[Rfam]
RNA: Actinobacteria sRNA Ms_IGR-5
Organism: Georgenia soli
RNA sequence: ACACGAGAAGGGAGGUGGUCCAGAGGUGAAUAUUCUUCGGACGCGUGAGGUGGCUACCCGCUAGCCCGUCUGUGGACGGACCUCAGGGUCCUCCCGCCCGACGGGCGGCGAGAACCAGGUGGUCACCGGGACCCGCGGGGGCCGUGACAUCGUCCAUCACGGCACCCCGGCCGAUCGGCCGGGAACCCGCGGGCUCUUCCCU
Numbered sequence: 001a002c003a004c005g006a007g008a009a010g011g012g013a014g015g016u017g018g019u020c021c022a023g024a025g026g027u028g029a030a031u032a033u034u035c036u037u038c039g040g041a042c043g044c045g046u047g048a049g050g051u052g053g054c055u056a057c058c059c060g061c062u063a064g065c066c067c068g069u070c071u072g073u074g075g076a077c078g079g080a081c082c083u084c085a086g087g088g089u090c091c092u093c094c095c096g097c098c099c100g101a102c103g104g105g106c107g108g109c110g111a112g113a114a115c116c117a118g119g120u121g122g123u124c125a126c127c128g129g130g131a132c133c134c135g136c137g138g139g140g141g142c143c144g145u146g147a148c149a150u151c152g153u154c155c156a157u158c159a160c161g162g163c164a165c166c167c168c169g170g171c172c173g174a175u176c177g178g179c180c181g182g183g184a185a186c187c188c189g190c191g192g193g194c195u196c197u198u199c200c201c202u
Base pairs, nucleotide, nucleotide: 014058015057016056017055018054019053059110060109061108062107065104067103068102069101070100072097073096074095128196129195130194132193133192134191135190136189137188138187139186142162143161144160145159146158147157